[Rfam]
RNA sequence: GGCUGGUCCUUGUGCAGCGGUGUUUACAGCUAAUUGAUCACAACUGGUUACAGAUUUCUUUGUUCCUUUUCCACUCCUACUGCUUCAUUUGCCUAGCUUUAA
Numbered sequence: 001g002g003c004u005g006g007u008c009c010u011u012g013u014g015c016a017g018c019g020g021u022g023u024u025u026a027c028a029g030c031u032a033a034u035u036g037a038u039c040a041c042a043a044c045u046g047g048u049u050a051c052a053g054a055u056u057u058c059u060u061u062g063u064u065c066c067u068u069u070u071c072c073a074c075u076c077c078u079a080c081u082g083c084u085u086c087a088u089u090u091g092c093c094u095a096g097c098u099u100u101a102a
Base pairs, nucleotide, nucleotide: 001098002097003096004095005094006093008091014086016081017080019078020077022076028064029063030062032060033059